[Rfam]
RNA sequence: GACUGUUAGGUCUAUUGAAUCGUCGUUUGGACACGGGUUCGAUUCCCGUAUGCUCCACUAUGUUCGUUCGACUCGAACCAGUGGCAGCUCCUGUGAUGGGUAACUCUUCCUCAUGUGUGAAAUAACACAAAUGGCAACUGAGCUGCAAUCGGGGCAUUAUGGUUUUGACAGCGACAUAGAGGAAAUAGAAUAGGUCAAUAAGCAGAUAACUGGCAAUAUAAGUUAUGUAACAGAUUACACUCGCUUAGUAGCGUGA
Number, nucleotide and partner (000 for none) at each position: 001g195002a000003c193004u192005g191006u000007u000008a000009g000010g000011u000012c000013u000014a000015u184016u183017g000018a000019a000020u000021c000022g000023u174024c173025g172026u000027u171028u170029g169030g000031a000032c000033a049034c048035g047036g046037g045038u000039u000040c000041g000042a000043u000044u000045c037046c036047c035048g034049u033050a157051u156052g155053c154054u153055c152056c151057a000058c000059u000060a000061u000062g000063u000064u000065c000066g000067u000068u000069c000070g000071a000072c000073u000074c000075g000076a000077a000078c000079c000080a000081g000082u000083g000084g000085c000086a000087g000088c000089u000090c000091c000092u000093g000094u000095g000096a000097u000098g000099g000100g000101u000102a000103a000104c000105u000106c000107u000108u000109c000110c000111u000112c000113a000114u000115g000116u000117g000118u000119g000120a000121a000122a000123u000124a000125a000126c000127a000128c000129a000130a000131a000132u000133g000134g000135c000136a000137a000138c000139u000140g000141a000142g000143c000144u000145g000146c000147a000148a000149u000150c000151g056152g055153g054154g053155c052156a051157u050158u000159a000160u000161g000162g000163u000164u000165u000166u000167g000168a000169c029170a028171g027172c025173g024174a023175c000176a000177u000178a000179g000180a000181g000182g000183a016184a015185a000186u000187a000188g000189a000190a000191u005192a004193g003194g000195u001196c253197a000198a000199u250200a000201a000202g000203c000204a000205g000206a000207u000208a000209a000210c000211u000212g000213g000214c000215a000216a000217u000218a000219u000220a000221a000222g000223u000224u000225a000226u000227g000228u000229a000230a000231c000232a000233g000234a000235u000236u000237a000238c000239a000240c000241u000242c000243g000244c000245u000246u000247a000248g000249u000250a199251g000252c000253g196254u000255g000256a000
This 256-nucleotide RNA belongs to the Rfam family "permuted transfer-messenger RNA".
Rfam classes the family as a non-coding RNA gene.